Shown here is a 136-nucleotide sequence from Propithecus coquereli, a member of the family "Small nucleolar RNA SNORA49". A search with the family's covariance model found it, with a score of 94 bits. Gene Ontology terms of the family: nucleolus and RNA processing. The organism belongs to Propithecus, within Eukaryota. The snoRNA ACA49 has no identified RNA target. NB genomic sequence 1-nt different from published.

[Rfam]
RNA sequence: CUGCCUCACCCGUACUCCAGGGGCUUUAUUUUGUCUGUGAAGUGCCCUGGUGUUGCCUGAGGACAGACGAGAAAGCAGGUGUCCUUCCCCAGUCACACUCUGUCUUCUUCUGGGGCCCACACGUGGAGGUGACAGU
Numbered sequence: 001c002u003g004c005c006u007c008a009c010c011c012g013u014a015c016u017c018c019a020g021g022g023g024c025u026u027u028a029u030u031u032u033g034u035c036u037g038u039g040a041a042g043u044g045c046c047c048u049g050g051u052g053u054u055g056c057c058u059g060a061g062g063a064c065a066g067a068c069g070a071g072a073a074a075g076c077a078g079g080u081g082u083c084c085u086u087c088c089c090c091a092g093u094c095a096c097a098c099u100c101u102g103u104c105u106u107c108u109u110c111u112g113g114g115g116c117c118c119a120c121a122c123g124u125g126g127a128g129g130u131g132a133c134a135g136u
Stems, first nucleotide, its partner, number of pairs: 004062005011055001017050006023043005074130001076128001087115006095108001097106001